[Rfam]
RNA sequence: AGGGCACCUCGUUCGGUGAGGCGUCGCCACGGACACAGGCCACUGACCCCACGACGUCGAGAGACGCCCAGGGUCAGGACAGGUCUCCCCGGCCUAAGGGGUGACCCCAAGUGGCUGCGCCCGGGUUCCCGGGCGCUACGCCGUGGCGUGCCAAAGUGCCAAAGCUCUGACGACAUCA
Numbered sequence: 001a002g003g004g005c006a007c008c009u010c011g012u013u014c015g016g017u018g019a020g021g022c023g024u025c026g027c028c029a030c031g032g033a034c035a036c037a038g039g040c041c042a043c044u045g046a047c048c049c050c051a052c053g054a055c056g057u058c059g060a061g062a063g064a065c066g067c068c069c070a071g072g073g074u075c076a077g078g079a080c081a082g083g084u085c086u087c088c089c090c091g092g093c094c095u096a097a098g099g100g101g102u103g104a105c106c107c108c109a110a111g112u113g114g115c116u117g118c119g120c121c122c123g124g125g126u127u128c129c130c131g132g133g134c135g136c137u138a139c140g141c142c143g144u145g146g147c148g149u150g151c152c153a154a155a156g157u158g159c160c161a162a163a164g165c166u167c168u169g170a171c172g173a174c175a176u177c178a
Stems, first nucleotide, its partner, number of pairs: 007172001009170002011165002013097001015160003020152003025148008039115005045075005055066004082106004088100003117136006